Shown here is a 98-nucleotide RNA sequence from Treponema vincentii, a member of the family "TD-2 RNA".
Rfam classes the family as a small RNA.
Pairs were carried over by alignment from the consensus structure, which is taken from published work.
Lineage of the source: Bacteria > Pseudomonadati > Spirochaetota > Spirochaetia > Treponema vincentii.
The match comes from Rfam's covariance-model search (60 bits).
On this family, see Weinberg et al., Nucleic Acids Res 2007: "Identification of 22 candidate structured RNAs in bacteria using the CMfinder comparative genomics pipeline".
Its Rfam clan is "TD (Treponema denticola) motifs".
RNA sequence: UCCGCCAUGGAGGGCGGUGGUUCUACGCAGUAAUGAGUUUCAGUAUUAGUUGAAACUCAUCAUUAAAGAUGUACAAGGAUGUACAUCUUUAACAGGGC
Numbered sequence: 001u002c003c004g005c006c007a008u009g010g011a012g013g014g015c016g017g018u019g020g021u022u023c024u025a026c027g028c029a030g031u032a033a034u035g036a037g038u039u040u041c042a043g044u045a046u047u048a049g050u051u052g053a054a055a056c057u058c059a060u061c062a063u064u065a066a067a068g069a070u071g072u073a074c075a076a077g078g079a080u081g082u083a084c085a086u087c088u089u090u091a092a093c094a095g096g097g098c
Base pairs, nucleotide, nucleotide: 002017003016004015005014006013034059035058036057037056038055039054040053041052042051043050044049063092064091065090066089067088068087069086070085071084072083073082074081
Dot-bracket structure: .(((((......)))))................(((((((((((....)))))))))))...((((((((((((......))))))))))))......